[Rfam]
RNA: IS605-orfB-I RNA
RNA sequence: ACCUUAUAAAGAUGUAGUUACGCAAGACAGUAACGCAUUUCCCUUUAAGGCGAUAUUAGAUAUAGAAGUAUAAGUGAAAAGUCUUAUUGUGAAGCUACACGUUGAAAUAGGAUGAGCUUAUAUGGAAAAGGUUAACCGUAAGACCUUAUGUUGAAAAACAUUAAAAUUGACCUAAGAAUAAGAAUAUUUUUGUUAUUUUUAGUUACGGCGGU
Numbered sequence: 001a002c003c004u005u006a007u008a009a010a011g012a013u014g015u016a017g018u019u020a021c022g023c024a025a026g027a028c029a030g031u032a033a034c035g036c037a038u039u040u041c042c043c044u045u046u047a048a049g050g051c052g053a054u055a056u057u058a059g060a061u062a063u064a065g066a067a068g069u070a071u072a073a074g075u076g077a078a079a080a081g082u083c084u085u086a087u088u089g090u091g092a093a094g095c096u097a098c099a100c101g102u103u104g105a106a107a108u109a110g111g112a113u114g115a116g117c118u119u120a121u122a123u124g125g126a127a128a129a130g131g132u133u134a135a136c137c138g139u140a141a142g143a144c145c146u147u148a149u150g151u152u153g154a155a156a157a158a159c160a161u162u163a164a165a166a167u168u169g170a171c172c173u174a175a176g177a178a179u180a181a182g183a184a185u186a187u188u189u190u191u192g193u194u195a196u197u198u199u200u201a202g203u204u205a206c207g208g209c210g211g212u
Stems, first nucleotide, its partner, number of pairs: 002050005008044001010040006017034005022028001068123008082112007093103002129146005136208005141167001148161005172202010183191001